[Rfam]
RNA sequence: UAAGUAAAUCGCCUUAUCGCUGUUCAAAAUUGAAUGGAGGAAAGUCCGAACACCAUAGUGCAAUAUAGUGGUUAAUGGCCACCAGCCGAGAGGUUAGGAAAAGUGCAACAGAAAGAAUGUACGGGUAAUGCUGUAGUGAAAUCAGGUAAACUCUAUAUGGUGCAAUGUCAUGUAUACCAGCGUUUGAAAGCGGCACGUUUGAUGCUGGAGGGUAGGCAGCUAAAGUGUAUUAGUAAUAGUACAUUCAGAUAAAUGAUAAGGGCUUUUUCUUUUUUAAGAAAAAGUACAGAAUUCGGCUUAUAGAUUUGCUUAAGUA
Numbered sequence: 001u002a003a004g005u006a007a008a009u010c011g012c013c014u015u016a017u018c019g020c021u022g023u024u025c026a027a028a029a030u031u032g033a034a035u036g037g038a039g040g041a042a043a044g045u046c047c048g049a050a051c052a053c054c055a056u057a058g059u060g061c062a063a064u065a066u067a068g069u070g071g072u073u074a075a076u077g078g079c080c081a082c083c084a085g086c087c088g089a090g091a092g093g094u095u096a097g098g099a100a101a102a103g104u105g106c107a108a109c110a111g112a113a114a115g116a117a118u119g120u121a122c123g124g125g126u127a128a129u130g131c132u133g134u135a136g137u138g139a140a141a142u143c144a145g146g147u148a149a150a151c152u153c154u155a156u157a158u159g160g161u162g163c164a165a166u167g168u169c170a171u172g173u174a175u176a177c178c179a180g181c182g183u184u185u186g187a188a189a190g191c192g193g194c195a196c197g198u199u200u201g202a203u204g205c206u207g208g209a210g211g212g213u214a215g216g217c218a219g220c221u222a223a224a225g226u227g228u229a230u231u232a233g234u235a236a237u238a239g240u241a242c243a244u245u246c247a248g249a250u251a252a253a254u255g256a257u258a259a260g261g262g263c264u265u266u267u268u269c270u271u272u273u274u275u276a277a278g279a280a281a282a283a284g285u286a287c288a289g290a291a292u293u294c295g296g297c298u299u300a301u302a303g304a305u306u307u308g309c310u311u312a313a314g315u316a
Stems, first nucleotide, its partner, number of pairs: 001312010011301001012261007020037007042299003046296005051162004058196004063158005068082005083097001084095004098153002103151002105147002166218004177208005188200004225244008
Shown here is a 316-nucleotide sequence from Allotamlana fucoidanivorans, a member of the family "Bacterial RNase P class A". Rfam classes the family as a ribozyme. A search with the family's covariance model found it, with a score of 196 bits.